This 88-nucleotide RNA from Geotrypetes seraphini belongs to the Rfam family "mir-191 microRNA precursor family". The source organism's lineage runs through Eukaryota, Dipnotetrapodomorpha, Tetrapoda, Gymnophiona and Geotrypetes. A search with the family's covariance model found it, with a score of 62 bits.
[Rfam]
RNA sequence: UGCAGGAGAACAGGUAACAGAAUCCAACAGCAGCUGUGAUAUUCUGAAAACAGCUGCUUUUGGGAUUCCGUUGUCUGCUCUUGUGCUG
Numbered sequence: 001u002g003c004a005g006g007a008g009a010a011c012a013g014g015u016a017a018c019a020g021a022a023u024c025c026a027a028c029a030g031c032a033g034c035u036g037u038g039a040u041a042u043u044c045u046g047a048a049a050a051c052a053g054c055u056g057c058u059u060u061u062g063g064g065a066u067u068c069c070g071u072u073g074u075c076u077g078c079u080c081u082u083g084u085g086c087u088g
Base pairs, nucleotide, nucleotide: 009079011077012076013075017071018070020068021067022066023065024063025062026061027060030057031056032055033054034053035052036051